Connexin-43 internal ribosome entry site (IRES): a 201-nucleotide RNA sequence from Catagonus wagneri.
RNA sequence: AGUUCUUAUGAAGUAUCAGCACUUUUCUUUGUUGGGGCAGGGGGAGGAGUGAGGAAAACUACCAUACAGCAGCAGACUUUUACACUUUAAAUAGACAGGUCUGAGUGCCUAAACUUGCUUUUGCAUUUUACAUCAUCCUCUAAGAAUAUUAAUCGCUUGGCAUGCCUACCUCACAUCUUUUAAGAGAAUUAAGUCAAAAAU
Numbered sequence: 001a002g003u004u005c006u007u008a009u010g011a012a013g014u015a016u017c018a019g020c021a022c023u024u025u026u027c028u029u030u031g032u033u034g035g036g037g038c039a040g041g042g043g044g045a046g047g048a049g050u051g052a053g054g055a056a057a058a059c060u061a062c063c064a065u066a067c068a069g070c071a072g073c074a075g076a077c078u079u080u081u082a083c084a085c086u087u088u089a090a091a092u093a094g095a096c097a098g099g100u101c102u103g104a105g106u107g108c109c110u111a112a113a114c115u116u117g118c119u120u121u122u123g124c125a126u127u128u129u130a131c132a133u134c135a136u137c138c139u140c141u142a143a144g145a146a147u148a149u150u151a152a153u154c155g156c157u158u159g160g161c162a163u164g165c166c167u168a169c170c171u172c173a174c175a176u177c178u179u180u181u182a183a184g185a186g187a188a189u190u191a192a193g194u195c196a197a198a199a200a201u
Base pairs, nucleotide, nucleotide: 002020003019004018007015008014009013029146030145032143033142034141035140036139041138042137043134044133046131051127052126054124057122058121074102075101076100077099078098079097103118105116107114157197158196159195160194161193163192167188170184171183

Rfam describes the family as follows. This family represents the connexin-43 internal ribosome entry site (IRES) which allows cap independent translation during conditions such as heat shock and stress. The match comes from Rfam's covariance-model search (102 bits). The organism belongs to Catagonus, within Eukaryota.